Record summary:
A member of the RNA family "U7 small nuclear RNA" from Rhinolophus ferrumequinum, 64 nucleotides long. About the family: Animal histone pre-mRNAs are spliced by a different mechanism than nuclear pre-mRNAs and self-splicing introns. This processing involves the U7 snRNP, which contains only one RNA species: U7. The 5' end of U7 RNA is thought to base-pair to a conserved spacer element downstream of the cleavage site in histone pre-mRNA. This family contains a number of annotated U7 pseudogenes. NCBI's taxonomy places the organism under Eukaryota, Chordata, Euteleostomi, Yinpterochiroptera, Rhinolophus. A search with the family's covariance model found it, with a score of 43 bits.

RNA sequence: AAGUGUUACAGCUCUUUUAGAAUUUGUCUGGUAGAUGUUCCUCUCCUCCCAGAAGACUGUCAAU
Numbered sequence: 001a002a003g004u005g006u007u008a009c010a011g012c013u014c015u016u017u018u019a020g021a022a023u024u025u026g027u028c029u030g031g032u033a034g035a036u037g038u039u040c041c042u043c044u045c046c047u048c049c050c051a052g053a054a055g056a057c058u059g060u061c062a063a064u
Stems, first nucleotide, its partner, number of pairs: 034061004039056002042053003